[Rfam]
RNA: MIR5269 microRNA precursor family
RNA sequence: UUGGAUUAAAUAAAUAUGAGUCCUACAUUUUGGACAUGCAACUCACAUAAAGUGGUGAAAUAUACAUUGAUUUAAUCCAG
Numbered sequence: 001u002u003g004g005a006u007u008a009a010a011u012a013a014a015u016a017u018g019a020g021u022c023c024u025a026c027a028u029u030u031u032g033g034a035c036a037u038g039c040a041a042c043u044c045a046c047a048u049a050a051a052g053u054g055g056u057g058a059a060a061u062a063u064a065c066a067u068u069g070a071u072u073u074a075a076u077c078c079a080g
Stems, first nucleotide, its partner, number of pairs: 001080011013068003017064002024057002026054007